[Rfam]
RNA sequence: GCCAAGGGGAUGUCCGCGAUCACCCCGUGAGGCUCCGGCCGAAGCAUCGCGUCCCAUGCUCCCGUUCGGAGAGGACGCCACAAUG
Numbered sequence: 001g002c003c004a005a006g007g008g009g010a011u012g013u014c015c016g017c018g019a020u021c022a023c024c025c026c027g028u029g030a031g032g033c034u035c036c037g038g039c040c041g042a043a044g045c046a047u048c049g050c051g052u053c054c055c056a057u058g059c060u061c062c063c064g065u066u067c068g069g070a071g072a073g074g075a076c077g078c079c080a081c082a083a084u085g
Base pairs, nucleotide, nucleotide: 006026007025008024009023049078050077051076052075053074054073
RNA: chrB-a RNA
Organism: Neoroseomonas lacus